[Rfam]
RNA sequence: AUAAUGAUACUCACACUCAAAAUGUGUUCCGCUGCUAACUACAGGGGAAGGUGAAAUUCCUGUGG
Dot-bracket structure: ...........(((((.......))))(((.(((.......))).)))(((.......))))...
The family of this 65-nucleotide RNA sequence from Enterococcus faecalis is "pemK RNA".
Rfam classes the family as a cis-regulatory element.
The base pairs follow the family's consensus structure, which is taken from published work.
Taxonomically the source falls in Enterococcus faecalis (Bacteria, Bacillati, Bacilli, Enterococcaceae).